RNA: Archaeal RNase P
Organism: Acidiplasma cupricumulans
RNA sequence: AAAAGCCCGAGGGCAGCCCACGCCGAAAGGUGAGGAAAGUCCCCCCUCCACGGCAGACUGCUUCCAGCGAAAACUGGAUUUCCGAGAGGAAAGGUAAAGGGACAAGAAAUAAUACGGUUCCUGCCUAAGGAUGAUUUGUAGAAAUGACGUUUGCAGGAGUGCCGAUGAGAACCCUCCCAGCAGGGAGCAAGUCUAAAUUGAAUCCGUGAACACUGCCGUGAGAUUCAGGUAAGACGCAUAGUCGAAUGCUGCCAGCCGAAAGGUGAACAGAAGGGGGCUUACUCCGGGCAUUU
Number, nucleotide and partner (000 for none) at each position: 001a293002a292003a291004a000005g289006c288007c287008c286009g285010a283011g282012g253013g252014c251015a250016g249017c248018c000019c000020a000021c032022g031023c030024c029025g000026a000027a000028a000029g024030g023031u022032g021033a000034g000035g000036a000037a280038a279039g278040u000041c277042c276043c275044c274045c273046c187047u186048c185049c184050a000051c218052g217053g216054c215055a214056g213057a000058c183059u182060g181061c180062u179063u078064c077065c076066a075067g074068c000069g000070a000071a000072a000073a000074c067075u066076g065077g064078a063079u092080u091081u090082c089083c088084g000085a000086g000087a000088g083089g082090a081091a080092a079093g178094g177095u000096a000097a000098a175099g174100g173101g172102a000103c000104a000105a000106g000107a000108a000109a000110u000111a000112a000113u000114a000115c164116g163117g162118u159119u158120c157121c156122u155123g154124c153125c000126u000127a000128a000129g000130g000131a000132u000133g000134a000135u000136u144137u143138g000139u000140a000141g000142a000143a137144a136145u000146g000147a000148c000149g000150u000151u000152u000153g124154c123155a122156g121157g120158a119159g118160u000161g000162c117163c116164g115165a000166u000167g000168a000169g000170a000171a000172c101173c100174c099175u098176c000177c094178c093179a062180g061181c060182a059183g058184g049185g048186a047187g046188c000189a000190a000191g235192u234193c233194u232195a000196a000197a000198u000199u000200g226201a225202a224203u223204c222205c000206g000207u000208g000209a000210a000211c000212a000213c056214u055215g054216c053217c052218g051219u000220g000221a000222g204223a203224u202225u201226c200227a000228g000229g000230u000231a000232a194233g193234a192235c191236g000237c000238a000239u000240a000241g000242u000243c000244g000245a000246a000247u000248g017249c016250u015251g014252c013253c012254a000255g000256c000257c000258g000259a000260a000261a000262g000263g000264u000265g000266a000267a000268c000269a000270g000271a000272a000273g045274g044275g043276g042277g041278c039279u038280u037281a000282c011283u010284c000285c009286g008287g007288g006289c005290a000291u003292u002293u001